[Rfam]
RNA sequence: GCGUUUGUAGUCCAACGGUUAGGAUAAUUGCCUUCCAAGCAAUGGACCCAGGUUCGACUUCGGCAAACGUA
Dot-bracket structure: (((((((..((((........)))).(((((.......)))))....((.(........).))))))))).
Numbered sequence: 001g002c003g004u005u006u007g008u009a010g011u012c013c014a015a016c017g018g019u020u021a022g023g024a025u026a027a028u029u030g031c032c033u034u035c036c037a038a039g040c041a042a043u044g045g046a047c048c049c050a051g052g053u054u055c056g057a058c059u060u061c062g063g064c065a066a067a068c069g070u071a
Stems, first nucleotide, its partner, number of pairs: 001070007010025004027043005048063002051060001

tRNA: a 71-nucleotide RNA sequence from Morella rubra.
A reference for the family is Hou (1993), "The tertiary structure of tRNA and the development of the genetic code", Trends Biochem Sci.
The match comes from Rfam's covariance-model search (50 bits).
Its family is annotated with triplet codon-amino acid adaptor activity in the Gene Ontology.
It is annotated as a transfer RNA.
From the family's description: Transfer RNA (tRNA) molecules are approximately 80 nucleotides in length.